RNA: Streptomyces sRNA 4677
RNA sequence: CGUCCCGGUGGCCCACGACGUAAAAGCUUUUAAGUACCCGUCUUUGAGUACGGGAGAAAUAACCCGACCCAACCCUGUGCGGGCCCGCGUCAGUACGUGCGAGGCGUCUCACUCACACGGGUGAAGUGUGCCAACCGGGCUGGAUUUUCGCCCUGUUGGCGGGCAUAUGCUCACGCUGACCACCACCAGACAUGAGACGGCCCCCGGCCGGGACUGGCAUCCCGACCGAAGGCCUGACCACCGAGGAAGCAGGACCUUCCCG
Numbered sequence: 001c002g003u004c005c006c007g008g009u010g011g012c013c014c015a016c017g018a019c020g021u022a023a024a025a026g027c028u029u030u031u032a033a034g035u036a037c038c039c040g041u042c043u044u045u046g047a048g049u050a051c052g053g054g055a056g057a058a059a060u061a062a063c064c065c066g067a068c069c070c071a072a073c074c075c076u077g078u079g080c081g082g083g084c085c086c087g088c089g090u091c092a093g094u095a096c097g098u099g100c101g102a103g104g105c106g107u108c109u110c111a112c113u114c115a116c117a118c119g120g121g122u123g124a125a126g127u128g129u130g131c132c133a134a135c136c137g138g139g140c141u142g143g144a145u146u147u148u149c150g151c152c153c154u155g156u157u158g159g160c161g162g163g164c165a166u167a168u169g170c171u172c173a174c175g176c177u178g179a180c181c182a183c184c185a186c187c188a189g190a191c192a193u194g195a196g197a198c199g200g201c202c203c204c205c206g207g208c209c210g211g212g213a214c215u216g217g218c219a220u221c222c223c224g225a226c227c228g229a230a231g232g233c234c235u236g237a238c239c240a241c242c243g244a245g246g247a248a249g250c251a252g253g254a255c256c257u258u259c260c261c262g
Stems, first nucleotide, its partner, number of pairs: 007242004014099004109124006139174001141173003199234004205228003210223004245260005